[Rfam]
RNA: c-di-GMP-I riboswitch aptamer
Organism: Affinundibacterium nitidum
RNA sequence: GUUCCAAGAGGGCAAACUCGUUGAAAGACGAGGACGCAAAGCCACCGGCCUAAAGCACGCGAGUGCAAUGGUAGCGGGGUUGCCAAA
Number, nucleotide and partner (000 for none) at each position: 001g000002u000003u000004c000005c000006a000007a000008g000009a000010g000011g000012g037013c036014a000015a000016a000017c032018u031019c030020g029021u028022u027023g000024a000025a000026a000027g022028a021029c020030g019031a018032g017033g000034a000035c000036g013037c012038a000039a000040a081041g080042c079043c078044a000045c077046c076047g075048g072049c071050c070051u000052a000053a000054a000055g066056c065057a064058c063059g000060c000061g000062a000063g058064u057065g056066c055067a000068a000069u000070g050071g049072u048073a000074g000075c047076g046077g045078g043079g042080u041081u040082g000083c000084c000085a000086a000087a000